[Rfam]
RNA sequence: GAAGUCGGCCGGGCAAUCGCGGCGCCAGAUGGCGUCGAGGAAAGUCCGGGCUCCAUAGGGCAGGGUGCCAGGUAACGCCUGGGCGGCGCGAGCCGACGGAAAGUGCCGCAGAGAGUAGACCGCCGAUGGCCGUGCAUGCACGGCACAGGUAAGGGUGAAAAGGUGCGGUAAGAGCGCACCGCGCGCUUGGCAACAUGUCGCGGCAAGGUAAACCCCACCCGGAGCAAGACCGAAUAGGGGAGUGCAAGCACGGCCCGUGCGAACUCCCGGGUAGGUCGCUUGAGUUGCGCGGUGACGCGCAUCCGAGAUGAAUGAUUGCCCUCGACAGAACCCGGCUUACAGGCCGGCUUCCACC
Number, nucleotide and partner (000 for none) at each position: 001g351002a350003a349004g348005u347006c346007g345008g344009c343010c342011g340012g320013g319014c318015a317016a316017u315018c314019g000020c037021g036022g035023c034024g033025c032026c031027a000028g000029a000030u000031g026032g025033c024034g023035u022036c021037g020038a000039g000040g000041a000042a338043a337044g336045u000046c335047c334048g333049g332050g331051c224052u223053c222054c221055a000056u000057a000058g256059g255060g254061c253062a000063g220064g219065g218066u217067g216068c082069c081070a080071g079072g078073u000074a000075a000076c000077g000078c072079c071080u070081g069082g068083g097084c095085g094086g093087c092088g000089c000090g000091a000092g087093c086094c085095g084096a000097c083098g215099g214100a000101a000102a000103g213104u212105g209106c208107c207108g000109c000110a000111g000112a000113g000114a000115g000116u000117a000118g000119a000120c154121c153122g150123c149124c148125g000126a000127u145128g144129g000130c142131c000132g000133u000134g000135c000136a000137u000138g000139c000140a000141c000142g130143g000144c128145a127146c000147a000148g124149g123150u122151a000152a000153g121154g120155g000156u000157g000158a000159a000160a000161a000162g180163g179164u178165g177166c176167g175168g000169u000170a000171a000172g000173a000174g000175c167176g166177c165178a164179c163180c162181g204182c202183g201184c200185g199186c000187u000188u195189g194190g000191c000192a000193a000194c189195a188196u000197g000198u000199c185200g184201c183202g182203g000204c181205a000206a000207g107208g106209u105210a000211a000212a104213c103214c099215c098216c067217a066218c065219c064220c063221g054222g053223a052224g051225c000226a000227a000228g277229a276230c275231c274232g000233a000234a000235u000236a000237g000238g268239g267240g266241a265242g264243u263244g000245c000246a000247a000248g260249c259250a258251c257252g000253g061254c060255c059256c058257g251258u250259g249260c248261g000262a000263a243264c242265u241266c240267c239268c238269g000270g000271g000272u000273a000274g231275g230276u229277c228278g000279c000280u000281u000282g000283a000284g303285u000286u301287g300288c299289g298290c297291g296292g000293u000294g000295a000296c291297g290298c289299g288300c287301a286302u000303c284304c000305g000306a000307g000308a000309u000310g000311a000312a000313u000314g018315a017316u016317u015318g014319c013320c012321c000322u000323c000324g000325a000326c000327a000328g000329a000330a000331c050332c049333c048334g047335g046336c044337u043338u042339a000340c011341a000342g010343g009344c008345c007346g006347g005348c004349u003350u002351c001352c000353a000354c000355c000